Rfam assigns this 142-nucleotide sequence from Oryzias melastigma to the family "Small nucleolar RNA SNORA15". Gene Ontology terms of the family: nucleolus and RNA processing. The match comes from Rfam's covariance-model search (48 bits). Rfam classes the family as an H/ACA-box small nucleolar RNA. ACA15 is a member of the H/ACA class of snoRNA that guide the sites of modification of uridines to pseudouridines.
RNA sequence: GCAUGGCCGAAUUCUGCCCCAGCUGACCUGUGCCGGAGACAGUCAGACACCAUGCAAAAGCCACGCCUCAUUUCUGCUUAGUGACUGCUAGGACAGAUGCUCCAAACCAGCUCUGUUCAGCUGCUCAGGAAUGAGUACAGAU
Numbered sequence: 001g002c003a004u005g006g007c008c009g010a011a012u013u014c015u016g017c018c019c020c021a022g023c024u025g026a027c028c029u030g031u032g033c034c035g036g037a038g039a040c041a042g043u044c045a046g047a048c049a050c051c052a053u054g055c056a057a058a059a060g061c062c063a064c065g066c067c068u069c070a071u072u073u074c075u076g077c078u079u080a081g082u083g084a085c086u087g088c089u090a091g092g093a094c095a096g097a098u099g100c101u102c103c104a105a106a107c108c109a110g111c112u113c114u115g116u117u118c119a120g121c122u123g124c125u126c127a128g129g130a131a132u133g134a135g136u137a138c139a140g141a142u
Stems, first nucleotide, its partner, number of pairs: 001055006014042003018038001067135010083125001085123001087121003091118006